[Rfam]
RNA sequence: UUAUGUGUGAGGAGCGAACCAGCAAGAGCACCGAGACGAAACACGGUCAGUCGUCGGUGCUCUUGCUGAUUU
Number, nucleotide and partner (000 for none) at each position: 001u000002u000003a000004u000005g000006u000007g000008u000009g000010a000011g000012g000013a000014g000015c068016g000017a000018a000019c000020c000021a067022g066023c065024a064025a063026g000027a000028g060029c059030a000031c000032c056033g055034a054035g052036a051037c050038g000039a000040a000041a000042c000043a000044c000045g000046g000047u000048c000049a000050g037051u036052c035053g000054u034055c033056g032057g000058u000059g029060c028061u000062c000063u025064u024065g023066c022067u021068g015069a000070u000071u000072u000

The family of this 72-nucleotide sequence from Leptolyngbya sp. 'hensonii' is "Cyano-1 RNA". The family has 265 seed sequences and 283 matches in Rfam 15.1. Rfam classes the family as a small RNA. A search with the family's covariance model found it, with a score of 41 bits.